[Rfam]
Shown here is a 226-nucleotide RNA sequence from Mesobacillus persicus, a member of the family "T-box leader". A search with the family's covariance model found it, with a score of 124 bits. Uncharged tRNA acts as the effector for transcription antitermination of genes in the T-box leader family. T-boxes are found upstream of many aminoacyl-tRNA synthetase genes and some amino acid biosynthetic genes usually in Gram-positive bacteria. Rfam links the family to the GO term tRNA binding. Taxonomically the source falls in Mesobacillus (Bacteria, Bacilli, Caryophanales, Bacillaceae).
RNA sequence: UGAUAGACAUUGAUGAAGGAGUAGUAGUGAUGUGAAGCCUGAUAUGAAGAGAGCUGACGGUAGGUGCAAGUCAGUCUGGCCCAUCAUGAACUCGCCUUUUAGUUGCUGGCGUGAACUAAUAGUAAGGCUAGCCGUUUUCCGCGUUAAGGAUGAAUGAAGCGAGUGACAUAUUGUCACUAAUGUGGGUGGUACCGCGGGAGAACAUACAUAAUCUCUCGUCCCUUUU
Numbered sequence: 001u002g003a004u005a006g007a008c009a010u011u012g013a014u015g016a017a018g019g020a021g022u023a024g025u026a027g028u029g030a031u032g033u034g035a036a037g038c039c040u041g042a043u044a045u046g047a048a049g050a051g052a053g054c055u056g057a058c059g060g061u062a063g064g065u066g067c068a069a070g071u072c073a074g075u076c077u078g079g080c081c082c083a084u085c086a087u088g089a090a091c092u093c094g095c096c097u098u099u100u101a102g103u104u105g106c107u108g109g110c111g112u113g114a115a116c117u118a119a120u121a122g123u124a125a126g127g128c129u130a131g132c133c134g135u136u137u138u139c140c141g142c143g144u145u146a147a148g149g150a151u152g153a154a155u156g157a158a159g160c161g162a163g164u165g166a167c168a169u170a171u172u173g174u175c176a177c178u179a180a181u182g183u184g185g186g187u188g189g190u191a192c193c194g195c196g197g198g199a200g201a202a203c204a205u206a207c208a209u210a211a212u213c214u215c216u217c218g219u220c221c222c223u224u225u226u
Base pairs, nucleotide, nucleotide: 007103008102016098017097018096019095027087028086029085030084031083032082053075054074055073056072057071058070106131107130108129109128110127112125133143134142135141162178163177164176165175166174167173168172184222185221186220194219195218196217197216198215199214200213201212
Dot-bracket structure: ......((.......((((.......((((((....................((((((...........))))))......)))))).......))))...))..(((((.(............).))))).(((.....)))..................(((((((...))))))).....(((.......((((((((..........)))))))))))....